[Rfam]
RNA sequence: AGCUGGCUUAGUUAGGAGGCAGAAAUCAAAUUAGAUCCGAAGAUGUUUUGUCUUUGGUCGUUUCAAUCCAAGGUUCUUUAGACGGACACUUUUACUCUUUUCAUUAGCAGUUGUCCUCUAAGCAGCCUUUGACAUUU
Numbered sequence: 001a002g003c004u005g006g007c008u009u010a011g012u013u014a015g016g017a018g019g020c021a022g023a024a025a026u027c028a029a030a031u032u033a034g035a036u037c038c039g040a041a042g043a044u045g046u047u048u049u050g051u052c053u054u055u056g057g058u059c060g061u062u063u064c065a066a067u068c069c070a071a072g073g074u075u076c077u078u079u080a081g082a083c084g085g086a087c088a089c090u091u092u093u094a095c096u097c098u099u100u101u102c103a104u105u106a107g108c109a110g111u112u113g114u115c116c117u118c119u120a121a122g123c124a125g126c127c128u129u130u131g132a133c134a135u136u137u
Base pairs, nucleotide, nucleotide: 004021005020007018008017009016034059035058036057037056043053045051046050068131070129071128072127073126074125077122078121079120080119084116085115086114087113088112090110
This 137-nucleotide RNA from Salix dunnii belongs to the Rfam family "Small nucleolar RNA U19". The family's consensus secondary structure was predicted with WAR. The literature on the family includes a 2002 paper in Curr Biol by Marker et al., "Experimental RNomics: identification of 140 candidates for small non-messenger RNAs in the plant Arabidopsis thaliana". Rfam links the family to the GO terms nucleolus and RNA processing. It scores 106 bits against the family's covariance model.